[Rfam]
RNA: Small nucleolar RNA SNORD72
Organism: Leptosomus discolor
RNA sequence: GGCUUCUUAAUGUUUCUUGUUAAAAAUGUCUGAUCUUACGAACUCUGUAGUGAUUUUAGUGCUUUACUGAGAUAAACU
Numbered sequence: 001g002g003c004u005u006c007u008u009a010a011u012g013u014u015u016c017u018u019g020u021u022a023a024a025a026a027u028g029u030c031u032g033a034u035c036u037u038a039c040g041a042a043c044u045c046u047g048u049a050g051u052g053a054u055u056u057u058a059g060u061g062c063u064u065u066a067c068u069g070a071g072a073u074a075a076a077c078u
Base pairs, nucleotide, nucleotide: 002077004075005074007072008071